[Rfam]
RNA: DUF805b RNA
RNA sequence: AAGGAAGUAGCUGAAAAUCCUAUAUAAUAGAGUAAGCA
Numbered sequence: 001a002a003g004g005a006a007g008u009a010g011c012u013g014a015a016a017a018u019c020c021u022a023u024a025u026a027a028u029a030g031a032g033u034a035a036g037c038a
Stems, first nucleotide, its partner, number of pairs: 002021004010037003